[Rfam]
RNA sequence: AAAGUCCAUUACGGUAAAGGCAUAGCGAGCCAUACCGGCCCCGAGUCAUGCGUGGCGCACCGCGAGGUGUGGCGCGAAGCGUUGACAGGGGAGCAUACAGGCCAGCCAUUGAGCCGCGAAAGUUUUCAGAUCAGGGUGCCGACGCCGUUGUCCCAGCGGAAGGCAACACGACCCGGCGCGUAAAGCGAGUGCCUGGCCGACCCUGCGUGGUCCGAGACCC
Numbered sequence: 001a002a003a004g005u006c007c008a009u010u011a012c013g014g015u016a017a018a019g020g021c022a023u024a025g026c027g028a029g030c031c032a033u034a035c036c037g038g039c040c041c042c043g044a045g046u047c048a049u050g051c052g053u054g055g056c057g058c059a060c061c062g063c064g065a066g067g068u069g070u071g072g073c074g075c076g077a078a079g080c081g082u083u084g085a086c087a088g089g090g091g092a093g094c095a096u097a098c099a100g101g102c103c104a105g106c107c108a109u110u111g112a113g114c115c116g117c118g119a120a121a122g123u124u125u126u127c128a129g130a131u132c133a134g135g136g137u138g139c140c141g142a143c144g145c146c147g148u149u150g151u152c153c154c155a156g157c158g159g160a161a162g163g164c165a166a167c168a169c170g171a172c173c174c175g176g177c178g179c180g181u182a183a184a185g186c187g188a189g190u191g192c193c194u195g196g197c198c199g200a201c202c203c204u205g206c207g208u209g210g211u212c213c214g215a216g217a218c219c220c
Stems, first nucleotide, its partner, number of pairs: 012037005019031003023188001025186002039091004045086004049081002051076004056071006110214001111212001113211006132205006138164003143158003169199002172196002175193005
This 220-nucleotide sequence from Candidatus Manganitrophus noduliformans belongs to the Rfam family "Group II catalytic intron D1-D4-6". It scores 193 bits against the family's covariance model. NCBI's taxonomy places the organism under Bacteria, Nitrospiria, Candidatus Troglogloeales, Candidatus Manganitrophaceae, Candidatus Manganitrophus. From the family's description: Group II introns are found in rRNA, tRNA and mRNA of organelles in fungi, plants and protists, and also in mRNA in bacteria. Pairs were carried over by alignment from the consensus structure.